The family of this 52-nucleotide RNA sequence from Lentivirus humimdef1 is "HIV Ribosomal frameshift signal". Its family is annotated with viral translational frameshifting in the Gene Ontology. The organism belongs to Lentivirus humimdef1, within Viruses. The literature on the family includes a 2004 paper in J Virol by Biswas et al., "The human immunodeficiency virus type 1 ribosomal frameshifting site is an invariant sequence determinant and an important target for antiviral therapy". Rfam's curators write: This family represents the HIV Ribosomal frameshift signal. HIV uses a system called -1 ribosomal frameshifting to produce the required ratio of Gag and Gag-Pol polyproteins. The stem-loop structure of the frameshift signal is thought to impede the ribosome and cause slippage in the 5' direction, this causes the -1 frameshift and translation then continues in the new frame.
[Rfam]
RNA sequence: UUUUUUAGGGAAGAUCUGGCCUUCUUCCAGGGGAAGGCCAGGGAAUUUUCUU
Numbered sequence: 001u002u003u004u005u006u007a008g009g010g011a012a013g014a015u016c017u018g019g020c021c022u023u024c025u026u027c028c029a030g031g032g033g034a035a036g037g038c039c040a041g042g043g044a045a046u047u048u049u050c051u052u
Stems, first nucleotide, its partner, number of pairs: 008052007015042011
Dot-bracket structure: .......((((((((((((((((((......)))))))))))...)))))))